[Rfam]
RNA sequence: AACGUGGUGGGCUCCGUGCCAGAUGCGCGUUUACACUGCACCGUUCUAAAGAAUUCUGUAAAUGCACUAUCUGGUACGACAGCCCACUACGU
Numbered sequence: 001a002a003c004g005u006g007g008u009g010g011g012c013u014c015c016g017u018g019c020c021a022g023a024u025g026c027g028c029g030u031u032u033a034c035a036c037u038g039c040a041c042c043g044u045u046c047u048a049a050a051g052a053a054u055u056c057u058g059u060a061a062a063u064g065c066a067c068u069a070u071c072u073g074g075u076a077c078g079a080c081a082g083c084c085c086a087c088u089a090c091g092u
Base pairs, nucleotide, nucleotide: 008086009085010084011083015078016077017076018075019074020073021072022071023070025067027065028064029063030062031061032060033059034058035057
RNA: mir-277 microRNA precursor family
Organism: Tribolium castaneum